U7 small nuclear RNA: a 53-nucleotide RNA from Oncorhynchus tshawytscha. The organism belongs to Oncorhynchus, within Eukaryota. Animal histone pre-mRNAs are spliced by a different mechanism than nuclear pre-mRNAs and self-splicing introns. This processing involves the U7 snRNP, which contains only one RNA species: U7. The 5' end of U7 RNA is thought to base-pair to a conserved spacer element downstream of the cleavage site in histone pre-mRNA. This family contains a number of annotated U7 pseudogenes. The match comes from Rfam's covariance-model search (40 bits). The base pairs follow the family's consensus structure, which was predicted with PFOLD.
RNA sequence: AAAUGUGCUCUUUUAGUUUUUCUCCAGUAGGUUUUUUCAAGGAGAAAGCCCCA
Numbered sequence: 001a002a003a004u005g006u007g008c009u010c011u012u013u014u015a016g017u018u019u020u021u022c023u024c025c026a027g028u029a030g031g032u033u034u035u036u037u038c039a040a041g042g043a044g045a046a047a048g049c050c051c052c053a
Base pairs, nucleotide, nucleotide: 030050031049032048033047034046035045036044037043